[Rfam]
RNA sequence: AGGGCAAAUGCCGGUGGAACUACAUCCAAGUGCAAAGGUCGCGGGUUCGACUCCCGCCGGAAUCUAACCAGGUUCCGUAGCUCAGUUGGAUAGAGCAUUGUGAAUGUUUCACUAAAACUUGUUGCCCGACC
Numbered sequence: 001a002g003g004g005c006a007a008a009u010g011c012c013g014g015u016g017g018a019a020c021u022a023c024a025u026c027c028a029a030g031u032g033c034a035a036a037g038g039u040c041g042c043g044g045g046u047u048c049g050a051c052u053c054c055c056g057c058c059g060g061a062a063u064c065u066a067a068c069c070a071g072g073u074u075c076c077g078u079a080g081c082u083c084a085g086u087u088g089g090a091u092a093g094a095g096c097a098u099u100g101u102g103a104a105u106g107u108u109u110c111a112c113u114a115a116a117a118c119u120u121g122u123u124g125c126c127c128g129a130c131c
Base pairs, nucleotide, nucleotide: 002127003126004125005124006123007122013113014112015111016110017109018108019107023102034099035098041057042056043055044054045053058077059076060075061074062073063072064071065070080096081095082094083093
RNA: Y RNA-like